Shown here is a 110-nucleotide RNA sequence from Paenibacillus sp. GP183, a member of the family "epsC RNA". It is annotated as a cis-regulatory element.
[Rfam]
RNA sequence: AGGUAAUGUCUACUAUACCUUUAUUAUCGUAGGCACUCGGUCAAGCUGUGGGAGAAUUUCCUUAGACGUGUAUCGUCAAUGGUUUGAUGUGAGGGUGGGUUAAAUGCCCU
Numbered sequence: 001a002g003g004u005a006a007u008g009u010c011u012a013c014u015a016u017a018c019c020u021u022u023a024u025u026a027u028c029g030u031a032g033g034c035a036c037u038c039g040g041u042c043a044a045g046c047u048g049u050g051g052g053a054g055a056a057u058u059u060c061c062u063u064a065g066a067c068g069u070g071u072a073u074c075g076u077c078a079a080u081g082g083u084u085u086g087a088u089g090u091g092a093g094g095g096u097g098g099g100u101u102a103a104a105u106g107c108c109c110u
Stems, first nucleotide, its partner, number of pairs: 001020004007035007036093004040088008050062005065077004097109004